[Rfam]
RNA: U5 spliceosomal RNA
RNA sequence: AGCCGUGUGGUAAGCACAAAGCGAACUAUUCUUUCGCCUUUUACUAAAGAAUACCGUGUGCUUGCCACUUUAAACGGCAUACGCUUAUUUUUUGAAGAGUUUUCCUUUACUGGAAGGCU
Numbered sequence: 001a002g003c004c005g006u007g008u009g010g011u012a013a014g015c016a017c018a019a020a021g022c023g024a025a026c027u028a029u030u031c032u033u034u035c036g037c038c039u040u041u042u043a044c045u046a047a048a049g050a051a052u053a054c055c056g057u058g059u060g061c062u063u064g065c066c067a068c069u070u071u072a073a074a075c076g077g078c079a080u081a082c083g084c085u086u087a088u089u090u091u092u093u094g095a096a097g098a099g100u101u102u103u104c105c106u107u108u109a110c111u112g113g114a115a116g117g118c119u
Base pairs, nucleotide, nucleotide: 003077004076005075006074008067009066010065011064012063013062014061015060016059017058018057027053028052029051030050031049032048033047034046095119099118100117101116102115103114104113